[Rfam]
RNA sequence: UAAAUAUCCAGAGAACUCGAGGGAUUUGGCCCAGUGACAGUUCAGCAGCGGGCUUUUUAAGUACUGUGCUAAUUCCAACGAGCAGAUGCUUGACAGAUAUCAU
Numbered sequence: 001u002a003a004a005u006a007u008c009c010a011g012a013g014a015a016c017u018c019g020a021g022g023g024a025u026u027u028g029g030c031c032c033a034g035u036g037a038c039a040g041u042u043c044a045g046c047a048g049c050g051g052g053c054u055u056u057u058u059a060a061g062u063a064c065u066g067u068g069c070u071a072a073u074u075c076c077a078a079c080g081a082g083c084a085g086a087u088g089c090u091u092g093a094c095a096g097a098u099a100u101c102a103u
Stems, first nucleotide, its partner, number of pairs: 004100005013043005021032003026078004044070004049066002052062004074095001079092005

This 103-nucleotide RNA sequence from Nosocomiicoccus massiliensis belongs to the Rfam family "SAM riboswitch aptamer (S box leader)". The family's consensus secondary structure is taken from published work. The SAM riboswitch is found upstream of a number of genes which code for proteins involved in methionine or cysteine biosynthesis in Gram-positive bacteria.